[Rfam]
RNA sequence: UCAUAUCCAAGUUUGAUUUUUCGUAUAACCUGUACGAUAUGGGUGCAGGGUCUCUAACAGGAACCGUAAAAUCCUGACUACGGAAAAAGGCAGUAAAGAA
Number, nucleotide and partner (000 for none) at each position: 001u000002c000003a000004u000005a000006u000007c000008c000009a000010a000011g000012u000013u000014u000015g000016a000017u000018u086019u085020u084021u083022c082023g081024u080025a079026u000027a000028a000029c049030c048031u047032g046033u045034a044035c043036g000037a000038u000039a000040u000041g000042g000043g035044u034045g033046c032047a031048g030049g029050g000051u000052c000053u000054c000055u000056a000057a000058c076059a075060g074061g073062a072063a000064c000065c000066g000067u000068a000069a000070a000071a000072u062073c061074c060075u059076g058077a000078c000079u025080a024081c023082g022083g021084a020085a019086a018087a000088a000089g000090g000091c000092a000093g000094u000095a000096a000097a000098g000099a000100a000